[Rfam]
RNA sequence: GUGGGACUCAAAUGUGGGGGCGCUCUCCCUGCUGUGAGAGAGGAAAGUGCUCCGAUAUUUGGGUCUCCC
Numbered sequence: 001g002u003g004g005g006a007c008u009c010a011a012a013u014g015u016g017g018g019g020g021c022g023c024u025c026u027c028c029c030u031g032c033u034g035u036g037a038g039a040g041a042g043g044a045a046a047g048u049g050c051u052c053c054g055a056u057a058u059u060u061g062g063g064u065c066u067c068c069c
Base pairs, nucleotide, nucleotide: 004066005065006064007063008062009061010060011059012058014056015055017053018052019051020050021049022048023047024046026044027043028042
RNA: mir-290 microRNA precursor family